[Rfam]
RNA sequence: UAGGUUGGCGUGGGGGAUCCUUUCGGGAUGGCCCUCACGCAUGCGCAUGCCUCGGGAAUGGGCGGAAUGCGAGCCGCCGGAGAUCUGGUAGCUCGAAUGC
Numbered sequence: 001u002a003g004g005u006u007g008g009c010g011u012g013g014g015g016g017a018u019c020c021u022u023u024c025g026g027g028a029u030g031g032c033c034c035u036c037a038c039g040c041a042u043g044c045g046c047a048u049g050c051c052u053c054g055g056g057a058a059u060g061g062g063c064g065g066a067a068u069g070c071g072a073g074c075c076g077c078c079g080g081a082g083a084u085c086u087g088g089u090a091g092c093u094c095g096a097a098u099g100c
Stems, first nucleotide, its partner, number of pairs: 007038001010035001012033002016029001018026002073092002076089002079086002

A member of the RNA family "Pyrrolysine insertion sequence mtbB" from an Olavius algarvensis Delta 1 endosymbiont, 100 nucleotides long. Gene Ontology term of the family: pyrrolysine incorporation. The match comes from Rfam's covariance-model search (73 bits).